[Rfam]
RNA: antisense RNA of dnaA mRNA
Organism: Klebsiella sp. RIT-PI-d
RNA sequence: CUUAGCAUUGGGCUUGCGGGCCACGAUACCAUUGCCUACCGCAUGUAAAAGGUGUGUCUUGCCAAGGCCAGUACCGCCGUA
Dot-bracket structure: ....((..(((((..(.(.(........)).).)))))..))........((((.((...((........))))))))...